[Rfam]
The family of this 139-nucleotide RNA sequence from Nannospalax galili is "Small nucleolar RNA SNORA47".
On this family, see Huttenhofer et al., EMBO J 2001: "RNomics: an experimental approach that identifies 201 candidates for novel, small, non-messenger RNAs in mouse".
It scores 128 bits against the family's covariance model.
The family's consensus secondary structure was predicted with WAR.
Taxonomically the source falls in Nannospalax (Eukaryota, Craniata, Gnathostomata, Mammalia).
RNA sequence: UGGAGGACUGAGAAGGUGGGGCAGUUCUGUACCAUGCUGCCUUCCAUUGGUUAAGACCUCCAACAGUGAAGGCUGCCCAGGCAGAAGAUGCCCCUCUCUUGGACCCUUGGAGGGGCAGUGCUGUGCUGGCCAACAUUUG
Numbered sequence: 001u002g003g004a005g006g007a008c009u010g011a012g013a014a015g016g017u018g019g020g021g022c023a024g025u026u027c028u029g030u031a032c033c034a035u036g037c038u039g040c041c042u043u044c045c046a047u048u049g050g051u052u053a054a055g056a057c058c059u060c061c062a063a064c065a066g067u068g069a070a071g072g073c074u075g076c077c078c079a080g081g082c083a084g085a086a087g088a089u090g091c092c093c094c095u096c097u098c099u100u101g102g103a104c105c106c107u108u109g110g111a112g113g114g115g116c117a118g119u120g121c122u123g124u125g126c127u128g129g130c131c132a133a134c135a136u137u138u139g
Stems, first nucleotide, its partner, number of pairs: 002061005015048004019042007080131003085127001088124003096118002099115002104113002